[Rfam]
Nucleotides: 065
Base pairs, nucleotide, nucleotide: 012062013024025048026047027046029044030043031042049061050060051059
Number, partner (000 for none) and nucleotide at each position: 001000a002000u003000a004000a005000u006000g007000a008000u009000a010000c011000u012062u013024c014000u015000a016000a017000a018000g019000u020000u021000g022000a023000c024013g025048c026047u027046g028000g029044c030043c031042c032000a033000u034000c035000u036000u037000g038000a039000a040000c041000a042031g043030g044029g045000g046027c047026a048025g049061a050060g051059g052000u053000g054000a055000g056000a057000u058000g059051c060050c061049u062012a063000u064000g065000u

Shown here is a 65-nucleotide RNA from Clostridiaceae bacterium JG1575, a member of the family "pemK RNA".
Taxonomically the source falls in Clostridiaceae (Bacteria, Bacillati, Clostridia, Eubacteriales).
It scores 50 bits against the family's covariance model.
It is annotated as a cis-regulatory element.